The record is a 176-nucleotide sequence from Desulfobacteraceae bacterium SEEP-SAG9, which matches "Group II catalytic intron D1-D4-3" in Rfam.
[Rfam]
RNA sequence: GUAGCCGUGAGGCUGGGUCUGGAGGAAGUCCAAUCCAAAAGCGCGGGGCGACGAACAGGAACCAGAUAUGAGGUGUGGUACACUCGGGACCAGUGGGCACGUGACCAUUAAGUCCUCCAUCUACGAUUGGGGUGUGCUUUAUAAAUCUGGCGUUUACGCGCGAUAAAGUUCUGUGU
Dot-bracket structure: .(((((....)))))............((.((...(....((((((((((...........((((((.....(((.(((((((...((((..((((........))))...))))................))))))).)))..))))))))))).)))))......)...)).))
Overview:
The source organism's lineage runs through Bacteria, Pseudomonadati, Desulfobacteria, Desulfobacterales and Desulfobacteraceae. A search with the family's covariance model found it, with a score of 111 bits. Its family is annotated with Group II intron splicing in the Gene Ontology.